[Rfam]
RNA sequence: CUAUGGCAAAUUAUUUGUCAUGGCGGAAGGAG
Numbered sequence: 001c002u003a004u005g006g007c008a009a010a011u012u013a014u015u016u017g018u019c020a021u022g023g024c025g026g027a028a029g030g031a032g
Stems, first nucleotide, its partner, number of pairs: 001023010
Overview
This 32-nucleotide RNA belongs to the Rfam family "L31-Firmicutes ribosomal protein leader". By type it is a cis-regulatory leader. Its Rfam clan is "Ribosomal Protein L31 Leader clan". The sequence is in the family's curated seed alignment. On this family, see Eckert and Weinberg, BMC Microbiol 2020: "Discovery of 20 novel ribosomal leader candidates in bacteria and archaea".